[Rfam]
RNA sequence: CGACUCUGGAAAGGGGCCCCGUGGUCCCGCCGAAGGGGCAAGGGCGCGGACCCGUUCGUCCGCUCCCGAAACUCUCAGGUCACGUACAGAGUGGGGAGG
Numbered sequence: 001c002g003a004c005u006c007u008g009g010a011a012a013g014g015g016g017c018c019c020c021g022u023g024g025u026c027c028c029g030c031c032g033a034a035g036g037g038g039c040a041a042g043g044g045c046g047c048g049g050a051c052c053c054g055u056u057c058g059u060c061c062g063c064u065c066c067c068g069a070a071a072c073u074c075u076c077a078g079g080u081c082a083c084g085u086a087c088a089g090a091g092u093g094g095g096g097a098g099g
Stems, first nucleotide, its partner, number of pairs: 001094001003092006014027004029080003032076002036074003042067002
A member of the RNA family "Glycine riboswitch aptamer" from Rothia santali, 99 nucleotides long.
The base pairs follow the family's consensus structure.
The match comes from Rfam's covariance-model search (41 bits).